[Rfam]
The record is a 51-nucleotide sequence, which matches "Mu-gpT-DE RNA" in Rfam. The family's RNA type in Rfam is small RNA. The base pairs follow the family's consensus structure, which is taken from published work.

RNA sequence: CCCUGACAGCUACGUGGUGUAGCUGACCAACCCAGACAGGAGAUCGACAUG
Numbered sequence: 001c002c003c004u005g006a007c008a009g010c011u012a013c014g015u016g017g018u019g020u021a022g023c024u025g026a027c028c029a030a031c032c033c034a035g036a037c038a039g040g041a042g043a044u045c046g047a048c049a050u051g
Base pairs, nucleotide, nucleotide: 002040003039004038005037007025008024009023010022011021